The family of this 97-nucleotide sequence from Cotesia typhae is "mir-275 microRNA precursor family".
Its family is annotated with RISC complex and miRNA-mediated post-transcriptional gene silencing in the Gene Ontology.
RNA sequence: AGGCUACUUGUAACGCGCGUUACUCGAGUACUUCCGGCUGUGAAUUAAUUAACUAACCAGUCAGGUACCUGAAGUAGCGCGCGCCGCGAGCUAGUUA
Numbered sequence: 001a002g003g004c005u006a007c008u009u010g011u012a013a014c015g016c017g018c019g020u021u022a023c024u025c026g027a028g029u030a031c032u033u034c035c036g037g038c039u040g041u042g043a044a045u046u047a048a049u050u051a052a053c054u055a056a057c058c059a060g061u062c063a064g065g066u067a068c069c070u071g072a073a074g075u076a077g078c079g080c081g082c083g084c085c086g087c088g089a090g091c092u093a094g095u096u097a
Base pairs, nucleotide, nucleotide: 009088010087011086014083016081017080018079019078020077021076022075030066031065033064036062037061038060039059